[Rfam]
RNA sequence: UUAUGCCUGGCUCCCUGUAUGCCACAAGCAAAGAACAAUCUCCGCCGUCUCAGAUUGGCUGCUGCCGGUGGCGUGCGAGGAGCCAAGCAUAC
Numbered sequence: 001u002u003a004u005g006c007c008u009g010g011c012u013c014c015c016u017g018u019a020u021g022c023c024a025c026a027a028g029c030a031a032a033g034a035a036c037a038a039u040c041u042c043c044g045c046c047g048u049c050u051c052a053g054a055u056u057g058g059c060u061g062c063u064g065c066c067g068g069u070g071g072c073g074u075g076c077g078a079g080g081a082g083c084c085a086a087g088c089a090u091a092c
Base pairs, nucleotide, nucleotide: 002091003090004089005088006087008085009084010083011082012081013080014079016077017076018075019074020073021072022071023070024069028065029064